The family of this 122-nucleotide RNA from Cellulomonas sp. PhB143 is "c-di-AMP riboswitch aptamer (ydaO/yuaA leader)". Pairs were carried over by alignment from the consensus structure. The match comes from Rfam's covariance-model search (47 bits). Taxonomically the source falls in Cellulomonas (Bacteria, Actinomycetota, Micrococcales, Cellulomonadaceae).
[Rfam]
RNA sequence: UGAACCAUGGCAGCGGCGGGGGACCCACGUCCUCACCGGGCGACCUCGGUCGUCCUCGGGGUGAAGCUGCGCCCGCGCAGCCGGUCCAGACCUCGGACCGAACCCGACAGCUCACCUCGCAG
Numbered sequence: 001u002g003a004a005c006c007a008u009g010g011c012a013g014c015g016g017c018g019g020g021g022g023a024c025c026c027a028c029g030u031c032c033u034c035a036c037c038g039g040g041c042g043a044c045c046u047c048g049g050u051c052g053u054c055c056u057c058g059g060g061g062u063g064a065a066g067c068u069g070c071g072c073c074c075g076c077g078c079a080g081c082c083g084g085u086c087c088a089g090a091c092c093u094c095g096g097a098c099c100g101a102a103c104c105c106g107a108c109a110g111c112u113c114a115c116c117u118c119g120c121a122g
Stems, first nucleotide, its partner, number of pairs: 001122001005015001016120006026058001059105003067080004083099004
Dot-bracket structure: (...(.........)((((((....(...............................)(((.....((((......))))..((((.........))))...))).........)))))).)